About this RNA:
This 279-nucleotide RNA from Medicago truncatula belongs to the Rfam family "MIR2655 microRNA precursor family".
RNA sequence: CCCUUAACUAUUAAAAGUUUUGUUUUGGUCUUUUAACUUACUUUUUGGUUUCGUUUUGGUCCCUUAACUUAUUUUUUGGUUUCAUUUUAGUCCCUUAACUCUAAUACAUUCAUCCUAACAUAAAGGACCAAAGUGGUUGACGAAGGAAGAGUUAAGGGACCAAAACGAAACCAAAAAGUAAGUUAAAAGACCAAAACGAAACUUUUAAUAGUUAAGGGACCAAAACGAAACCAAAAAGUAAGUUAAGGGACCAAAACGAAACUUUUAAUAGUUAAGGGA
Numbered sequence: 001c002c003c004u005u006a007a008c009u010a011u012u013a014a015a016a017g018u019u020u021u022g023u024u025u026u027g028g029u030c031u032u033u034u035a036a037c038u039u040a041c042u043u044u045u046u047g048g049u050u051u052c053g054u055u056u057u058g059g060u061c062c063c064u065u066a067a068c069u070u071a072u073u074u075u076u077u078g079g080u081u082u083c084a085u086u087u088u089a090g091u092c093c094c095u096u097a098a099c100u101c102u103a104a105u106a107c108a109u110u111c112a113u114c115c116u117a118a119c120a121u122a123a124a125g126g127a128c129c130a131a132a133g134u135g136g137u138u139g140a141c142g143a144a145g146g147a148a149g150a151g152u153u154a155a156g157g158g159a160c161c162a163a164a165a166c167g168a169a170a171c172c173a174a175a176a177a178g179u180a181a182g183u184u185a186a187a188a189g190a191c192c193a194a195a196a197c198g199a200a201a202c203u204u205u206u207a208a209u210a211g212u213u214a215a216g217g218g219a220c221c222a223a224a225a226c227g228a229a230a231c232c233a234a235a236a237a238g239u240a241a242g243u244u245a246a247g248g249g250a251c252c253a254a255a256a257c258g259a260a261a262c263u264u265u266u267a268a269u270a271g272u273u274a275a276g277g278g279a
Stems, first nucleotide, its partner, number of pairs: 002277007023256003027252003031248013045234013
Its family is annotated with RISC complex and miRNA-mediated post-transcriptional gene silencing in the Gene Ontology. The source organism's lineage runs through Eukaryota, Euphyllophyta, rosids, fabids and Medicago.